[Rfam]
RNA sequence: GACUAGUCGUUGCGAUAGUAAUCCUGCUCAGUACGAGAGGAACCGCAGGUUCGGACAUUUGGUUCACGCACUCGGUCGAGCGGCCGGUGGUGCGAAGCUACCAUCCGUGGGAUUAUGCCUGAACGCCUCUAAGGCCGUAUCCUUUCUAGUCAAAGAUGGCAACGAUAUCUCUAGGAGUCUCGUGUGGGUCGAAAGGCUCAAAACAAUGUGACACUACUAGGUGGCCGGCCCUCGUGACCGGUCAUCGCACGGGCCCCAGUUUGCCGUACGGGCGUCUUUGGAUUCGUCGUCGGGAUCUCGCCGAUCGACGGCCAUGGCGCUCUAACGGUCGAUCAUGGGUACUCCAACUUCGACGUCGAGACUCGGAAUCGUCUGUAGACGACUUAGGUACCUGGCGGGGUGUUGUACUCGGUAGAGCAGUUACCACGCUGCGAUCUGUUGAGACUCAGCCCUAUGCUUGGGGAUUCGU
Numbered sequence: 001g002a003c004u005a006g007u008c009g010u011u012g013c014g015a016u017a018g019u020a021a022u023c024c025u026g027c028u029c030a031g032u033a034c035g036a037g038a039g040g041a042a043c044c045g046c047a048g049g050u051u052c053g054g055a056c057a058u059u060u061g062g063u064u065c066a067c068g069c070a071c072u073c074g075g076u077c078g079a080g081c082g083g084c085c086g087g088u089g090g091u092g093c094g095a096a097g098c099u100a101c102c103a104u105c106c107g108u109g110g111g112a113u114u115a116u117g118c119c120u121g122a123a124c125g126c127c128u129c130u131a132a133g134g135c136c137g138u139a140u141c142c143u144u145u146c147u148a149g150u151c152a153a154a155g156a157u158g159g160c161a162a163c164g165a166u167a168u169c170u171c172u173a174g175g176a177g178u179c180u181c182g183u184g185u186g187g188g189u190c191g192a193a194a195g196g197c198u199c200a201a202a203a204c205a206a207u208g209u210g211a212c213a214c215u216a217c218u219a220g221g222u223g224g225c226c227g228g229c230c231c232u233c234g235u236g237a238c239c240g241g242u243c244a245u246c247g248c249a250c251g252g253g254c255c256c257c258a259g260u261u262u263g264c265c266g267u268a269c270g271g272g273c274g275u276c277u278u279u280g281g282a283u284u285c286g287u288c289g290u291c292g293g294g295a296u297c298u299c300g301c302c303g304a305u306c307g308a309c310g311g312c313c314a315u316g317g318c319g320c321u322c323u324a325a326c327g328g329u330c331g332a333u334c335a336u337g338g339g340u341a342c343u344c345c346a347a348c349u350u351c352g353a354c355g356u357c358g359a360g361a362c363u364c365g366g367a368a369u370c371g372u373c374u375g376u377a378g379a380c381g382a383c384u385u386a387g388g389u390a391c392c393u394g395g396c397g398g399g400g401u402g403u404u405g406u407a408c409u410c411g412g413u414a415g416a417g418c419a420g421u422u423a424c425c426a427c428g429c430u431g432c433g434a435u436c437u438g439u440u441g442a443g444a445c446u447c448a449g450c451c452c453u454a455u456g457c458u459u460g461g462g463g464a465u466u467c468g469u
Stems, first nucleotide, its partner, number of pairs: 006166008016148003021051001023049005052107004060100003067094005072087006109143003117135004175364007366467005372386001375383001392460001394458004398452003402445002410438003414435001417432005

Rfam assigns this 469-nucleotide part of an RNA from Apis florea to the family "Eukaryotic large subunit ribosomal RNA". For this family Rfam cites "Crystal structure of the ribosome at 5.5 A resolution" (Yusupov et al., Science, 2001). It is one of the family's seed sequences. The source organism's lineage runs through Eukaryota, Eumetazoa, Panarthropoda, Eumetabola and Apis. The family's consensus secondary structure is taken from published work.